[Rfam]
RNA: Group II catalytic intron D1-D4-6
RNA sequence: CGAGUCCCGAACCGGAAAGGACUGGCCGUCCACCGGAAUCGAGUGUUGCGUGGUGCGGGAGUGAUCUCGCCUGCGAAGCGUACACAGAGGGCGUGUAGGCCGUGUGAUUGAGCCCCGAAAGUGGCACGUGCGGAGCCGACGUUGUUAAUGGUGCGGAAGGCAACAGCAUCCCCAUCGCAAUGGCCUGGUGAGGAUGCUCCGCCGGGGUCGAAGAGCA
Numbered sequence: 001c002g003a004g005u006c007c008c009g010a011a012c013c014g015g016a017a018a019g020g021a022c023u024g025g026c027c028g029u030c031c032a033c034c035g036g037a038a039u040c041g042a043g044u045g046u047u048g049c050g051u052g053g054u055g056c057g058g059g060a061g062u063g064a065u066c067u068c069g070c071c072u073g074c075g076a077a078g079c080g081u082a083c084a085c086a087g088a089g090g091g092c093g094u095g096u097a098g099g100c101c102g103u104g105u106g107a108u109u110g111a112g113c114c115c116c117g118a119a120a121g122u123g124g125c126a127c128g129u130g131c132g133g134a135g136c137c138g139a140c141g142u143u144g145u146u147a148a149u150g151g152u153g154c155g156g157a158a159g160g161c162a163a164c165a166g167c168a169u170c171c172c173c174a175u176c177g178c179a180a181u182g183g184c185c186u187g188g189u190g191a192g193g194a195u196g197c198u199c200c201g202c203c204g205g206g207g208u209c210g211a212a213g214a215g216c217a
Base pairs, nucleotide, nucleotide: 012036013035014034015033019031020030021029022028024185025184026183039088040087043085044084045083046082047080048079049075050074051073052072055070056069057068058067059066060065109211110209112208113207114206115205116204117203130202131201132200133199134198135161136160137159140155141154142153166197167196168195169194170193171192173190174189175188176187